[Rfam]
The family of this 72-nucleotide RNA sequence from Macaca mulatta is "mir-147 microRNA precursor family". The family's consensus secondary structure was predicted with RNAalifold.

RNA sequence: AAUCUAAAGAAAACAUUUCUGCACACACACCAGACUAUUGAAGCCAGUGUGUGGAAAUGCUUCUGCUACAUU
Numbered sequence: 001a002a003u004c005u006a007a008a009g010a011a012a013a014c015a016u017u018u019c020u021g022c023a024c025a026c027a028c029a030c031c032a033g034a035c036u037a038u039u040g041a042a043g044c045c046a047g048u049g050u051g052u053g054g055a056a057a058u059g060c061u062u063c064u065g066c067u068a069c070a071u072u
Base pairs, nucleotide, nucleotide: 001072002071003070005068006067008064009063010062011061014059015058016057017056018055019054020053021052022051023050024049025048028047

It is one of the family's seed sequences. Rfam 15.1 lists 757 matches to the family in 593 species. For this family Rfam cites "Hidden layers of human small RNAs" (Kawaji et al., BMC Genomics, 2008). Taxonomically the source falls in Macaca (Eukaryota, Amniota, Mammalia, Haplorrhini).